[Rfam]
RNA: MIR2593 microRNA precursor family
Organism: Medicago truncatula
RNA sequence: UUACAAGAGACAAUUUACUUUUUAGAUACAUUGAAUAAUUUAUGUAUUUGGUUUAGAUUCUUGACUAGAUACAUACAUUAUUCAAUGUAUCUAAAAAGUCAAUUGUCUCUUGUAA
Numbered sequence: 001u002u003a004c005a006a007g008a009g010a011c012a013a014u015u016u017a018c019u020u021u022u023u024a025g026a027u028a029c030a031u032u033g034a035a036u037a038a039u040u041u042a043u044g045u046a047u048u049u050g051g052u053u054u055a056g057a058u059u060c061u062u063g064a065c066u067a068g069a070u071a072c073a074u075a076c077a078u079u080a081u082u083c084a085a086u087g088u089a090u091c092u093a094a095a096a097a098g099u100c101a102a103u104u105g106u107c108u109c110u111u112g113u114a115a
Stems, first nucleotide, its partner, number of pairs: 002114006009107005015101001017099009027089013041075004049067004